[Rfam]
RNA sequence: CUCUGUUCCCAAAGGGUUCAGGGCAGAAGGAG
Numbered sequence: 001c002u003c004u005g006u007u008c009c010c011a012a013a014g015g016g017u018u019c020a021g022g023g024c025a026g027a028a029g030g031a032g
Stems, first nucleotide, its partner, number of pairs: 001023005008016003
RNA: L31-Firmicutes ribosomal protein leader
Organism: Fictibacillus macauensis